Rfam assigns this 231-nucleotide RNA from Streptomyces sp. A1136 to the family "Streptomyces sRNA 4677". About the family: Located in the intergenic region between anti-sigma factor SCO4677 gene and a putative regulatory protein gene SCO4676. scr4677 expression requires the SCO4677 activity and scr4677 sRNA itself seem to affect the levels of the SCO4676-associated transcripts. The literature on the family includes a 2014 paper in PLoS One by Hindra et al., "Complex intra-operonic dynamics mediated by a small RNA in Streptomyces coelicolor".
RNA sequence: GGACCCGGUGGCGUUGGUCCCUGUACCACCAAGGACGAAGAGGGUGAACGACCCCCUACCAACCCUCCCGGCCUCCCAUCGCUCGGAUGGGUGAACUGUGCCAACUGGGCUGGAUUUGAUGUGGGUUGGCCGGCAUAUGCUCGGCCCCGACAACCGCAGACAUGAGACGGCCCCCGCCGGGACUGGCAUCCCGGGCGAGGGCCUGACCAAUCAGGAAGUGAACGCUUCCCA
Numbered sequence: 001g002g003a004c005c006c007g008g009u010g011g012c013g014u015u016g017g018u019c020c021c022u023g024u025a026c027c028a029c030c031a032a033g034g035a036c037g038a039a040g041a042g043g044g045u046g047a048a049c050g051a052c053c054c055c056c057u058a059c060c061a062a063c064c065c066u067c068c069c070g071g072c073c074u075c076c077c078a079u080c081g082c083u084c085g086g087a088u089g090g091g092u093g094a095a096c097u098g099u100g101c102c103a104a105c106u107g108g109g110c111u112g113g114a115u116u117u118g119a120u121g122u123g124g125g126u127u128g129g130c131c132g133g134c135a136u137a138u139g140c141u142c143g144g145c146c147c148c149g150a151c152a153a154c155c156g157c158a159g160a161c162a163u164g165a166g167a168c169g170g171c172c173c174c175c176g177c178c179g180g181g182a183c184u185g186g187c188a189u190c191c192c193g194g195g196c197g198a199g200g201g202c203c204u205g206a207c208c209a210a211u212c213a214g215g216a217a218g219u220g221a222a223c224g225c226u227u228c229c230c231a
Base pairs, nucleotide, nucleotide: 007211009209010208016073017072018071019070079094080093081092082091083090084089109145110144111143112142113141169203170202171201172200173199175197176196177195179192180191181190182189214229215228216227217226218225

Annotation: A search with the family's covariance model found it, with a score of 125 bits. Pairs were carried over by alignment from the consensus structure.